[Rfam]
Nucleotides: 077
Stems, first nucleotide, its partner, number of pairs: 008018004039062006045055003
Number, partner (000 for none) and nucleotide at each position: 001000c002000c003000c004000g005000g006000a007000u008018g009017c010016c011015c012000u013000u014000u015011g016010g017009g018008c019000g020000u021000u022000u023000c024000c025000u026000c027000c028000c029000u030000a031000g032000a033000c034000u035000u036000g037000a038000a039062g040061g041060c042059c043058g044057c045055g046054c047053c048000g049000u050000c051000c052000a053047g054046g055045c056000u057044g058043c059042g060041g061040c062039c063000u064000u065000u066000u067000u068000c069000u070000u071000g072000c073000c074000u075000c076000g077000g